[Rfam]
RNA: Bacterial RNase P class A
Organism: Helicobacter sp. CLO-3
RNA sequence: GCUGGUCUAGUGGCGGCUGCUUGUGCUUGCGCGAUUUGCGCCAAAAGCGUGAUUUGUGCUAGGCAUGAGAGGAAAGUCCGAGCUACAAAGACAGGAUUCCAUUUAACGAAUGGCUAGGGCAACCUAAGGGAAAGUGCAACAGAAAACAACCGCCGCCGCGCGCGGUAAGGGUGAAAAGGCGGGGUAAGAGCCCACCGGAAUCUAAGCGAUUAGAUUUGUCUAUGCAAACCCAAUCCGUAGCAAGAAGAGUAUGGUAAAAGUCUUGAUUUUGCUCUUCGCUAGAGGUGCGCUGCGAAGCGCAUCCCAGAUAAAUAGCUGCCCUCGACAGAACUCGGCUUAUACUAGACCAGCGCUU
Numbered sequence: 001g002c003u004g005g006u007c008u009a010g011u012g013g014c015g016g017c018u019g020c021u022u023g024u025g026c027u028u029g030c031g032c033g034a035u036u037u038g039c040g041c042c043a044a045a046a047g048c049g050u051g052a053u054u055u056g057u058g059c060u061a062g063g064c065a066u067g068a069g070a071g072g073a074a075a076g077u078c079c080g081a082g083c084u085a086c087a088a089a090g091a092c093a094g095g096a097u098u099c100c101a102u103u104u105a106a107c108g109a110a111u112g113g114c115u116a117g118g119g120c121a122a123c124c125u126a127a128g129g130g131a132a133a134g135u136g137c138a139a140c141a142g143a144a145a146a147c148a149a150c151c152g153c154c155g156c157c158g159c160g161c162g163c164g165g166u167a168a169g170g171g172u173g174a175a176a177a178g179g180c181g182g183g184g185u186a187a188g189a190g191c192c193c194a195c196c197g198g199a200a201u202c203u204a205a206g207c208g209a210u211u212a213g214a215u216u217u218g219u220c221u222a223u224g225c226a227a228a229c230c231c232a233a234u235c236c237g238u239a240g241c242a243a244g245a246a247g248a249g250u251a252u253g254g255u256a257a258a259a260g261u262c263u264u265g266a267u268u269u270u271g272c273u274c275u276u277c278g279c280u281a282g283a284g285g286u287g288c289g290c291u292g293c294g295a296a297g298c299g300c301a302u303c304c305c306a307g308a309u310a311a312a313u314a315g316c317u318g319c320c321c322u323c324g325a326c327a328g329a330a331c332u333c334g335g336c337u338u339a340u341a342c343u344a345g346a347c348c349a350g351c352g353c354u355u
Base pairs, nucleotide, nucleotide: 001351002350003349004348005347006346007345008344009343010342012320013319014318015317016316017315018314020069021068022067023066024065025064026063027062028061074338075337076336078335079334080333081332082331083240084239085238086237090263094236095235096234097233098232099113100112101111102110103109114128115126116125117124118123129231130230134229135228136225137224138223150170151169152166153165154164155163156162178196179195181193182192183191197220198217199216200215201214202213203212204211205210244277245276246275247274254272255271256270257269258268259267284303285302286301287300288299289298290297291296